[Rfam]
RNA sequence: GGGUCCAUGAUGAGUACAGGACACUGAAGGACUCAAAGCAGGUGUCAAUCUAAGAGCC
Number, nucleotide and partner (000 for none) at each position: 001g058002g057003g000004u055005c054006c000007a000008u000009g000010a000011u000012g000013a000014g000015u000016a000017c000018a000019g000020g000021a000022c000023a000024c000025u000026g000027a000028a000029g000030g000031a000032c000033u000034c000035a000036a000037a000038g000039c000040a000041g000042g000043u000044g000045u000046c000047a000048a000049u000050c000051u000052a000053a000054g005055a004056g000057c002058c001
RNA: Small nucleolar RNA SNORD109A